[Rfam]
Rfam assigns this 346-nucleotide part of an RNA from Tremella mesenterica to the family "Eukaryotic large subunit ribosomal RNA".
A reference for the family is Cannone et al. (2002), "The comparative RNA web (CRW) site: an online database of comparative sequence and structure information for ribosomal, intron, and other RNAs", BMC Bioinformatics.
The base pairs follow the family's consensus structure, which is taken from published work.
NCBI's taxonomy places the organism under Eukaryota, Agaricomycotina, Tremellaceae, Tremella, Tremella mesenterica.
A search with the family's covariance model found it, with a score of 3160 bits.
RNA sequence: GACUCUAGUUUGACAUUGUGAAAAGACAUGGAGGGUGUAGAAUAAGUGGGAGCUUCGGCGCCGGUGAAAUACCACUACCUCCAUCGUCUUUUUACUUAUUCAAUGAGGCGGAGAUGGGAUUAACGUCCCACCUUUUGGCAUUCAAGGUCGCUCGUCGGCCGAUCCGGGUUGAAGACAUUGUCAGGUGGGGAGUUUGGCUGGGGCGGCACAUCUGUUAAAAGAUAACGCAGGUGUCCUAAGGGGGGCUCAUGGAGAACAGAAAUCUCCAGUGGAACAAAAGGGUAAAAGUCCCCUUGAUUUUGAUUUUCAGUGUGAAUACAAACCAUGAAAGUGUGGCCUAUCGAUC
Numbered sequence: 001g002a003c004u005c006u007a008g009u010u011u012g013a014c015a016u017u018g019u020g021a022a023a024a025g026a027c028a029u030g031g032a033g034g035g036u037g038u039a040g041a042a043u044a045a046g047u048g049g050g051a052g053c054u055u056c057g058g059c060g061c062c063g064g065u066g067a068a069a070u071a072c073c074a075c076u077a078c079c080u081c082c083a084u085c086g087u088c089u090u091u092u093u094a095c096u097u098a099u100u101c102a103a104u105g106a107g108g109c110g111g112a113g114a115u116g117g118g119a120u121u122a123a124c125g126u127c128c129c130a131c132c133u134u135u136u137g138g139c140a141u142u143c144a145a146g147g148u149c150g151c152u153c154g155u156c157g158g159c160c161g162a163u164c165c166g167g168g169u170u171g172a173a174g175a176c177a178u179u180g181u182c183a184g185g186u187g188g189g190g191a192g193u194u195u196g197g198c199u200g201g202g203g204c205g206g207c208a209c210a211u212c213u214g215u216u217a218a219a220a221g222a223u224a225a226c227g228c229a230g231g232u233g234u235c236c237u238a239a240g241g242g243g244g245g246c247u248c249a250u251g252g253a254g255a256a257c258a259g260a261a262a263u264c265u266c267c268a269g270u271g272g273a274a275c276a277a278a279a280g281g282g283u284a285a286a287a288g289u290c291c292c293c294u295u296g297a298u299u300u301u302g303a304u305u306u307u308c309a310g311u312g313u314g315a316a317u318a319c320a321a322a323c324c325a326u327g328a329a330a331g332u333g334u335g336g337c338c339u340a341u342c343g344a345u346c
Stems, first nucleotide, its partner, number of pairs: 002193004009185007018095010028084007045076005052059002099173005109166004117129002121125001146160005196209001197207003210232006235336002241293006247273002250268006274283002298322003303317004324333003